RNA sequence: UUCGUGCGGCGACACGGCCAUGUUCUUCCCCUGUUGCUCAUGACCGUCAAUUCUUUUUCAGAAUUGUCCAGGCGGUCGUUCGAGUGUCAGGCCGUGUCCUGAGCAACUGGACGCCUUAGCACCCAAUAUCGUCUCUUCGUAUCUCCUCAAAAGACGAUGGGUCGGUGGUUCAUACAGUU
Numbered sequence: 001u002u003c004g005u006g007c008g009g010c011g012a013c014a015c016g017g018c019c020a021u022g023u024u025c026u027u028c029c030c031c032u033g034u035u036g037c038u039c040a041u042g043a044c045c046g047u048c049a050a051u052u053c054u055u056u057u058u059c060a061g062a063a064u065u066g067u068c069c070a071g072g073c074g075g076u077c078g079u080u081c082g083a084g085u086g087u088c089a090g091g092c093c094g095u096g097u098c099c100u101g102a103g104c105a106a107c108u109g110g111a112c113g114c115c116u117u118a119g120c121a122c123c124c125a126a127u128a129u130c131g132u133c134u135c136u137u138c139g140u141a142u143c144u145c146c147u148c149a150a151a152a153g154a155c156g157a158u159g160g161g162u163c164g165g166u167g168g169u170u171c172a173u174a175c176a177g178u179u
Stems, first nucleotide, its partner, number of pairs: 017098001019096004036085004044075004108172005127159008136150001

This 179-nucleotide sequence from Marasmius oreades belongs to the Rfam family "small nucleolar RNA snR35". Rfam 15.1 lists 75 matches to the family in 66 species. The literature on the family includes a 2005 paper in J Biol Chem by Li et al., "Identification and functional analysis of 20 Box H/ACA small nucleolar RNAs (snoRNAs) from Schizosaccharomyces pombe". It scores 40 bits against the family's covariance model.